The family of this 351-nucleotide part of an RNA from Winmispira thermophila is "Bacterial small subunit ribosomal RNA".
A reference for the family is Cannone et al. (2002), "The comparative RNA web (CRW) site: an online database of comparative sequence and structure information for ribosomal, intron, and other RNAs", BMC Bioinformatics.
It is one of the family's seed sequences.
The family's consensus secondary structure is taken from published work.
[Rfam]
RNA sequence: GGCGUAAAGGGGGCGCAGGCGGUCUGGCAAGUCUGGUGUAAAAGGCUACGGCUCAACCGUAGUGUGCACCGGAAACUGCUGGGCUGGAGUCCCGGAGGGGGAGCUGGAAUUCCCGGUGUAGGGGUGAAAUCUGUAGAUAUCGGGAGGAACGCCGGAGGCGAAGGCGAGCUCCUGGCCGGAGACUGACGCUGAGGCCCGAAAGCGUGGGGAGCGAACAGGAUUAGAUACCCUGGUAGUCCACGCCGUAAACGAUGUGCACUAGGCGUUGGGCCUUGGAGGCUCGGUGCCGAAGCUAACGCGUUAAGUGCACCGCCUGGGGAGUAUGCCGGCAACGGUGAAACUCAAAGGAAU
Numbered sequence: 001g002g003c004g005u006a007a008a009g010g011g012g013g014c015g016c017a018g019g020c021g022g023u024c025u026g027g028c029a030a031g032u033c034u035g036g037u038g039u040a041a042a043a044g045g046c047u048a049c050g051g052c053u054c055a056a057c058c059g060u061a062g063u064g065u066g067c068a069c070c071g072g073a074a075a076c077u078g079c080u081g082g083g084c085u086g087g088a089g090u091c092c093c094g095g096a097g098g099g100g101g102a103g104c105u106g107g108a109a110u111u112c113c114c115g116g117u118g119u120a121g122g123g124g125u126g127a128a129a130u131c132u133g134u135a136g137a138u139a140u141c142g143g144g145a146g147g148a149a150c151g152c153c154g155g156a157g158g159c160g161a162a163g164g165c166g167a168g169c170u171c172c173u174g175g176c177c178g179g180a181g182a183c184u185g186a187c188g189c190u191g192a193g194g195c196c197c198g199a200a201a202g203c204g205u206g207g208g209g210a211g212c213g214a215a216c217a218g219g220a221u222u223a224g225a226u227a228c229c230c231u232g233g234u235a236g237u238c239c240a241c242g243c244c245g246u247a248a249a250c251g252a253u254g255u256g257c258a259c260u261a262g263g264c265g266u267u268g269g270g271c272c273u274u275g276g277a278g279g280c281u282c283g284g285u286g287c288c289g290a291a292g293c294u295a296a297c298g299c300g301u302u303a304a305g306u307g308c309a310c311c312g313c314c315u316g317g318g319g320a321g322u323a324u325g326c327c328g329g330c331a332a333c334g335g336u337g338a339a340a341c342u343c344a345a346a347g348g349a350a351u
Base pairs, nucleotide, nucleotide: 001314002313003312009311011197012196013195014194016191018190019189020188022084023083024082025081026080027079028078030077031076032073033072034071035070036069037068038067039066040065045063046062047061048060049059050058051057088184089183090182092179093178094177095176099173100172101171102170103169104168105167106150110146111145112144113143114142115141116140117139121132122131123130158165159164202243203242204241205240206239207238211237212236216232217231218230219229254310255309256308257307258306259305262288263287264286265285266284267283268282269281270280271279272278273277292299293298316343317342318341325336326335327334328333